[Rfam]
Shown here is an 82-nucleotide RNA sequence from Oryza meridionalis, a member of the family "MIR814 microRNA precursor family". Its family is annotated with RISC complex and miRNA-mediated post-transcriptional gene silencing in the Gene Ontology. The family has 3 seed sequences and 46 matches in Rfam 15.1. The source organism's lineage runs through Eukaryota, Tracheophyta, Mesangiospermae, Liliopsida and Oryza. The match comes from Rfam's covariance-model search (91 bits).
RNA sequence: ACCGGAUGGGACAUUUCAUAGUACAAUGAAUCUGGACAGGAGAAUGUCUAGAUUCAUUGUACUAUGAAAUGUCACAUCCGGU
Numbered sequence: 001a002c003c004g005g006a007u008g009g010g011a012c013a014u015u016u017c018a019u020a021g022u023a024c025a026a027u028g029a030a031u032c033u034g035g036a037c038a039g040g041a042g043a044a045u046g047u048c049u050a051g052a053u054u055c056a057u058u059g060u061a062c063u064a065u066g067a068a069a070u071g072u073c074a075c076a077u078c079c080g081g082u
Stems, first nucleotide, its partner, number of pairs: 001082008010073007018065021